[Rfam]
RNA sequence: CUCUUAUCCUGAGCUGGUGGAGGGAGCAGACCCUAUGAAACCCAGCAACCUGCUAAAUAGAUAGUUGGUCCUUCUUAUUGAAGGAUCCCAUGAAGCGAAGGUGCUAAACUGAGGCAAGGUGGAUACCUUGAACGAUAAGAG
Numbered sequence: 001c002u003c004u005u006a007u008c009c010u011g012a013g014c015u016g017g018u019g020g021a022g023g024g025a026g027c028a029g030a031c032c033c034u035a036u037g038a039a040a041c042c043c044a045g046c047a048a049c050c051u052g053c054u055a056a057a058u059a060g061a062u063a064g065u066u067g068g069u070c071c072u073u074c075u076u077a078u079u080g081a082a083g084g085a086u087c088c089c090a091u092g093a094a095g096c097g098a099a100g101g102u103g104c105u106a107a108a109c110u111g112a113g114g115c116a117a118g119g120u121g122g123a124u125a126c127c128u129u130g131a132a133c134g135a136u137a138a139g140a141g
Stems, first nucleotide, its partner, number of pairs: 001141008013043001016042003022033003027114001030110001044105004049101002051097004115130006
Dot-bracket structure: ((((((((....(..(((...(((..[..[)))......))))((((.((((((.......................................))))..))))))....]...]((((((....))))))...))))))))

This 141-nucleotide RNA from Rossellomorea aquimaris belongs to the Rfam family "SAM riboswitch aptamer (S box leader)".
About the family: The SAM riboswitch is found upstream of a number of genes which code for proteins involved in methionine or cysteine biosynthesis in Gram-positive bacteria.